This 272-nucleotide RNA sequence from Nannospalax galili belongs to the Rfam family "Mason-Pfizer monkey virus packaging signal". Its family is annotated with viral genome packaging in the Gene Ontology. From the family's description: This family represents a group of sequences that are related to the Mason-Pfizer monkey virus (MPMV) packaging signal. Lineage of the source: Eukaryota > Vertebrata > Mammalia > Muroidea > Nannospalax.
[Rfam]
RNA sequence: UGGCACCCAACGUGGGGCCUGGAUACUGGGGACACUGUGAGGGACAUGAUGGAGGAAAAAGGGGUGUGCACCCACUCAAAUAAUUCAGAGAUGCCACAGGAUCCUGCCGCAACCGAGCCGAAGGUAAGUUGGGUGUUCAAUCAUGGGGCAAGAAUUAAGUCAGCAUCAGAUUUAUGUGGUACAGUUAAGAGAAGCUCUGCAGGCAAGAGGAGUAAAGGUUAAAACUGAGGAUUUAUUUCAUUUCUUUGAUUUUGUAAAGGACCUUUGUCCUU
Dot-bracket structure: .....(((...(((.........)))..)))...((((..........)))).............................(.(((.....((...(.(.......).)....))....)).).).......((.((((....))))))......((.((.................................))..)).......((((((...(((((.........))))).......)))))).........((((((....))))))
Numbered sequence: 001u002g003g004c005a006c007c008c009a010a011c012g013u014g015g016g017g018c019c020u021g022g023a024u025a026c027u028g029g030g031g032a033c034a035c036u037g038u039g040a041g042g043g044a045c046a047u048g049a050u051g052g053a054g055g056a057a058a059a060a061g062g063g064g065u066g067u068g069c070a071c072c073c074a075c076u077c078a079a080a081u082a083a084u085u086c087a088g089a090g091a092u093g094c095c096a097c098a099g100g101a102u103c104c105u106g107c108c109g110c111a112a113c114c115g116a117g118c119c120g121a122a123g124g125u126a127a128g129u130u131g132g133g134u135g136u137u138c139a140a141u142c143a144u145g146g147g148g149c150a151a152g153a154a155u156u157a158a159g160u161c162a163g164c165a166u167c168a169g170a171u172u173u174a175u176g177u178g179g180u181a182c183a184g185u186u187a188a189g190a191g192a193a194g195c196u197c198u199g200c201a202g203g204c205a206a207g208a209g210g211a212g213u214a215a216a217g218g219u220u221a222a223a224a225c226u227g228a229g230g231a232u233u234u235a236u237u238u239c240a241u242u243u244c245u246u247u248g249a250u251u252u253u254g255u256a257a258a259g260g261a262c263c264u265u266u267g268u269c270c271u272u
Stems, first nucleotide, its partner, number of pairs: 006031003012026003035052004082125001084123001085121002092115002097109001099107001133149002136147004156199002159195002207247006216234005257272006